[Rfam]
RNA sequence: UCUACCGUGAGAUGGAAUCUGAAGGAAGUGGGCGGAAAACCUCUGGCCUGACGAAUAGAAAUCUCAUAUAAGGCGAGCUCUGCUUGGAUGAGUCUGCGUAACAAGACAAAGUCCUUGCUACCAAAGGGCAGGGAGCGUAAAUGAGGCAGGUAGAUGGAGGGAAAGAACGCGC
Numbered sequence: 001u002c003u004a005c006c007g008u009g010a011g012a013u014g015g016a017a018u019c020u021g022a023a024g025g026a027a028g029u030g031g032g033c034g035g036a037a038a039a040c041c042u043c044u045g046g047c048c049u050g051a052c053g054a055a056u057a058g059a060a061a062u063c064u065c066a067u068a069u070a071a072g073g074c075g076a077g078c079u080c081u082g083c084u085u086g087g088a089u090g091a092g093u094c095u096g097c098g099u100a101a102c103a104a105g106a107c108a109a110a111g112u113c114c115u116u117g118c119u120a121c122c123a124a125a126g127g128g129c130a131g132g133g134a135g136c137g138u139a140a141a142u143g144a145g146g147c148a149g150g151u152a153g154a155u156g157g158a159g160g161g162a163a164a165g166a167a168c169g170c171g172c
Stems, first nucleotide, its partner, number of pairs: 001016004006011001028172003032168001040160006046151005062146006073138003078133006086114004092107004
RNA: Group II catalytic intron D1-D4-3